[Rfam]
RNA sequence: UUAUACACUGAGUGGUCAGAUUAUUAUGAUCUCUGCAUAAUAAUCUGGCCACUCAGUGUAUAU
Numbered sequence: 001u002u003a004u005a006c007a008c009u010g011a012g013u014g015g016u017c018a019g020a021u022u023a024u025u026a027u028g029a030u031c032u033c034u035g036c037a038u039a040a041u042a043a044u045c046u047g048g049c050c051a052c053u054c055a056g057u058g059u060a061u062a063u
Base pairs, nucleotide, nucleotide: 004060005059006058007057008056009055010054011053012052013051014050015049016048017047019045020044021043022042023041024040025039026038027037028036

The record is a 63-nucleotide RNA from Cnephaeus nilssonii, which matches "mir-9256 microRNA precursor family" in Rfam. Taxonomically the source falls in Cnephaeus (Eukaryota, Deuterostomia, Teleostomi, Theria). Pairs were carried over by alignment from the consensus structure, which was predicted with RNAalifold. Its family is annotated with miRNA-mediated post-transcriptional gene silencing and RISC complex in the Gene Ontology.